mir-216 microRNA precursor family: a 76-nucleotide sequence from Anolis carolinensis. Rfam links the family to the GO terms RISC complex and miRNA-mediated post-transcriptional gene silencing. The source organism's lineage runs through Eukaryota, Craniata, Sauria, Lepidosauria and Anolis. The family is grouped with related families in Rfam's "mir-216 clan".

[Rfam]
RNA sequence: AAUUGGUUUAAUCUCAGCUGGCAACUGUGAGCAGUUUCCAAAUCCUCUCACAGUGGUUUCUGGGAUUAUGCUAAAC
Number, nucleotide and partner (000 for none) at each position: 001a000002a000003u074004u073005g072006g071007u070008u000009u068010a067011a066012u065013c064014u063015c062016a061017g060018c000019u000020g058021g057022c056023a054024a000025c000026u052027g051028u050029g049030a048031g047032c000033a000034g000035u000036u000037u000038c000039c000040a000041a000042a000043u000044c000045c000046u000047c031048u030049c029050a028051c027052a026053g000054u023055g000056g022057u021058u020059u000060c017061u016062g015063g014064g013065a012066u011067u010068a009069u000070g007071c006072u005073a004074a003075a000076c000